[Rfam]
Purine riboswitch aptamer: a 102-nucleotide RNA sequence from Neobacillus cucumis. The family's consensus secondary structure is taken from published work.

RNA sequence: CAAUAGGGUAUGUACUACCUUCAUAUAUCCUCGAAAAUAGGGUUCGAGAGUCUCUACCGGGUCGCCGUAAAUGGCCUGACUAUGAAGGCGGAAUUUUUCUAU
Number, nucleotide and partner (000 for none) at each position: 001c000002a000003a000004u000005a000006g000007g000008g000009u000010a000011u000012g000013u000014a000015c000016u000017a000018c088019c087020u086021u085022c084023a083024u082025a081026u000027a000028u000029c000030c048031u047032c046033g045034a044035a043036a000037a000038u000039a000040g000041g000042g000043u035044u034045c033046g032047a031048g030049a000050g000051u000052c000053u000054c000055u000056a000057c000058c078059g077060g076061g075062u074063c073064g072065c000066c000067g000068u000069a000070a000071a000072u064073g063074g062075c061076c060077u059078g058079a000080c000081u025082a024083u023084g022085a021086a020087g019088g018089c000090g000091g000092a000093a000094u000095u000096u000097u000098u000099c000100u000101a000102u000

The match comes from Rfam's covariance-model search (82 bits).